RNA sequence: ACAGUACAAACUGAACAGGCCGGGGAAACCUGGGGCCGGGUCACAGAAGUGACAGUGGAGAAUAAGACGAUAUGUACAUCCACGGGACAGUA
Numbered sequence: 001a002c003a004g005u006a007c008a009a010a011c012u013g014a015a016c017a018g019g020c021c022g023g024g025g026a027a028a029c030c031u032g033g034g035g036c037c038g039g040g041u042c043a044c045a046g047a048a049g050u051g052a053c054a055g056u057g058g059a060g061a062a063u064a065a066g067a068c069g070a071u072a073u074g075u076a077c078a079u080c081c082a083c084g085g086g087a088c089a090g091u092a
Stems, first nucleotide, its partner, number of pairs: 010091004016086001018037004022031003040053005055083005
Dot-bracket structure: .........((((..(.(((((((....)))..))))..(((((....))))).(((((...................)))))..).)))).